[Rfam]
A member of the RNA family "Small nucleolar RNA SNORA56" from Mustela putorius, 118 nucleotides long. Rfam 15.1 lists 153 matches to the family in 125 species. The family is grouped with related families in Rfam's "SNORA56 clan". Rfam's curators write: ACA56 is a member of the H/ACA class of snoRNA that guide the sites of modification of uridines to pseudouridines. The match comes from Rfam's covariance-model search (100 bits).

RNA sequence: CAGCAGACAGUUAUCCCUUUCUAGUCUGGCUCAUGGGAGUCCGUCUGCAACAGUAAGUGGUGAGUUCUUCCAUCUGUCGUCAGUAUUUUGAUGGUGGCUUCAGACUUGCCGGAUAUCA
Numbered sequence: 001c002a003g004c005a006g007a008c009a010g011u012u013a014u015c016c017c018u019u020u021c022u023a024g025u026c027u028g029g030c031u032c033a034u035g036g037g038a039g040u041c042c043g044u045c046u047g048c049a050a051c052a053g054u055a056a057g058u059g060g061u062g063a064g065u066u067c068u069u070c071c072a073u074c075u076g077u078c079g080u081c082a083g084u085a086u087u088u089u090g091a092u093g094g095u096g097g098c099u100u101c102a103g104a105c106u107u108g109c110c111g112g113a114u115a116u117c118a
Stems, first nucleotide, its partner, number of pairs: 003048006025038003058111007066104003073097002078093006